[Rfam]
The family of this 114-nucleotide RNA sequence from Triplophysa tibetana is "Potassium channel RNA editing signal".
RNA sequence: CUCGGCUACGGAGAUAUGUUCCCCCAGACGACCUCCGGCAUGCUGGUGGGCGCGCUUUGCGCCCUGGCGGGUGUGCUGACUAUCGCCAUGCCCGUACCGGUUAUCGUAAACAAC
Dot-bracket structure: .(.(..(((((.(((..((.(...............((((........(((.........)))..........))))................).))..))).)))))..).).

Its family is annotated with adenosine to inosine editing in the Gene Ontology. By type it is a cis-regulatory element.